The family of this 107-nucleotide RNA from Vibrio palustris is "Qrr RNA".
On this family, see Feng et al., Cell 2015: "A qrr noncoding RNA deploys four different regulatory mechanisms to optimize quorum-sensing dynamics".
The base pairs follow the family's consensus structure, which is taken from published work.
The family has 30 seed sequences and 148 matches in Rfam 15.1.
[Rfam]
Nucleotides: 107
Base pairs, nucleotide, nucleotide: 001023002022003021004020005019006018040072041071042070045063046062047061048060049059050058076097077096078095079094080093081092082091083090
Number, partner (000 for none) and nucleotide at each position: 001023u002022g003021a004020c005019u006018c007000c008000u009000u010000u011000a012000a013000g014000c015000c016000g017000g018006g019005a020004g021003u022002c023001a024000c025000c026000u027000a028000g029000c030000c031000a032000a033000c034000u035000g036000a037000c038000g039000u040072u041071g042070u043000u044000a045063g046062u047061g048060a049059a050058c051000u052000g053000a054000c055000u056000u057000u058050g059049u060048u061047c062046a063045c064000a065000c066000u067000u068000a069000u070042a071041u072040a073000u074000a075000g076097c077096c078095a079094a080093u081092c082091a083090c084000a085000c086000c087000a088000u089000u090083g091082u092081g093080a094079u095078u096077g097076g098000c099000u100000u101000u102000u103000u104000u105000u106000u107000g
Record summary
By type it is a small RNA.